[Rfam]
A member of the RNA family "small nucleolar RNA snoR137" from Eucalyptus grandis, 153 nucleotides long. The organism belongs to Eucalyptus, within Eukaryota. A search with the family's covariance model found it, with a score of 106 bits. Rfam 15.1 lists 808 matches to the family in 221 species. The family's RNA type in Rfam is H/ACA-box small nucleolar RNA. For this family Rfam cites "Mining small RNA sequencing data: a new approach to identify small nucleolar RNAs in Arabidopsis" (Chen and Wu, Nucleic Acids Res, 2009).
Nucleotides: 153
Stems, first nucleotide, its partner, number of pairs: 003066006016053003019049002021046005085147007098133003102129005
Number, partner (000 for none) and nucleotide at each position: 001000g002000u003066u004065g005064c006063u007062u008061c009000c010000u011000a012000a013000u014000g015000g016053u017052g018051a019049a020048c021046u022045c023044c024043c025042u026000c027000u028000a029000a030000a031000a032000u033000u034000c035000a036000a037000a038000g039000a040000u041000g042025a043024g044023g045022g046021a047000u048020g049019u050000u051018u052017c053016a054000a055000g056000u057000u058000u059000c060000c061008g062007a063006a064005g065004c066003a067000u068000a069000g070000a071000u072000u073000g074000a075000a076000c077000g078000a079000u080000u081000u082000c083000c084000a085147a086146u087145c088144a089143g090142u091141g092000u093000u094000u095000a096000a097000c098133a099132g100131c101000g102129c103128c104127g105126g106125u107000g108000c109000u110000u111000c112000u113000a114000u115000u116000u117000c118000g119000c120000g121000u122000c123000g124000c125106a126105c127104c128103g129102g130000c131100g132099c133098u134000a135000c136000c137000u138000g139000u140000c141091u142090g143089c144088u145087g146086a147085u148000a149000c150000a151000u152000c153000a